[Rfam]
RNA sequence: CUUUUCCUUCAGGGCAGGGUGAGGCGAGUGCCAAUUCCCGAUCGGUGGUAACGCAUUGCGAAGUCCACGAGCCAUUUGGCAUGAACUGGUGAAAAUCCAGUACCGACGGUAUAGUCCGGAUGAAAGAAGGAGCAA
Numbered sequence: 001c002u003u004u005u006c007c008u009u010c011a012g013g014g015c016a017g018g019g020u021g022a023g024g025c026g027a028g029u030g031c032c033a034a035u036u037c038c039c040g041a042u043c044g045g046u047g048g049u050a051a052c053g054c055a056u057u058g059c060g061a062a063g064u065c066c067a068c069g070a071g072c073c074a075u076u077u078g079g080c081a082u083g084a085a086c087u088g089g090u091g092a093a094a095a096u097c098c099a100g101u102a103c104c105g106a107c108g109g110u111a112u113a114g115u116c117c118g119g120a121u122g123a124a125a126g127a128a129g130g131a132g133c134a135a
Stems, first nucleotide, its partner, number of pairs: 004132007017039003041115002043105002045068004063103002073079001085101005107118003
The record is a 135-nucleotide RNA from Sulfoacidibacillus thermotolerans, which matches "FMN riboswitch aptamer (RFN element)" in Rfam. Taxonomically the source falls in Sulfoacidibacillus (Bacteria, Bacillati, Bacillota, Bacilli). The family's consensus secondary structure is taken from published work. It scores 97 bits against the family's covariance model.